[Rfam]
The family of this 104-nucleotide sequence from Streptococcus ictaluri is "trpB ncRNA motif". A search with the family's covariance model found it, with a score of 59 bits. NCBI's taxonomy places the organism under Bacteria, Bacillati, Lactobacillales, Streptococcus, Streptococcus ictaluri. It is annotated as a cis-regulatory element. A reference for the family is Narunsky et al. (2024), "The discovery of novel noncoding RNAs in 50 bacterial genomes", Nucleic Acids Res. Rfam's curators write: trpB ncRNA motif was reported as a strong cis regulatory motif candidate, with potential to be a cis regulatory riboswitch type, it have been identified in Firmicutes and Fusobacteria. The motif have been recognised upstream of an uncharacterized ABC transporter with strong homology to amino acid transporters. It is also occasionally located upstream of trpB gene, that codes for a tryptophan synthase. The family's consensus secondary structure is taken from published work.

RNA sequence: GACAUAGAUACGACUUUUAGAGUACUUCUAAAAAGGUAUCUAUGCGCUAAACUUGGAUUUCAAAAAGCGCCUAGUAGCUAAAUACUGAGCGCUUUUUCUUUUGC
Number, nucleotide and partner (000 for none) at each position: 001g045002a000003c044004a043005u042006a041007g040008a039009u038010a037011c036012g000013a000014c000015u033016u032017u031018u030019a029020g028021a000022g000023u000024a000025c000026u000027u000028c020029u019030a018031a017032a016033a015034a000035g000036g011037u010038a009039u008040c007041u006042a005043u004044g003045c001046g000047c000048u000049a000050a000051a000052c000053u000054u000055g000056g000057a000058u000059u000060u000061c000062a000063a000064a000065a000066a093067g092068c091069g090070c089071c000072u087073a086074g085075u084076a083077g000078c000079u000080a000081a000082a000083u076084a075085c074086u073087g072088a000089g070090c069091g068092c067093u066094u000095u000096u000097u000098c000099u000100u000101u000102u000103g000104c000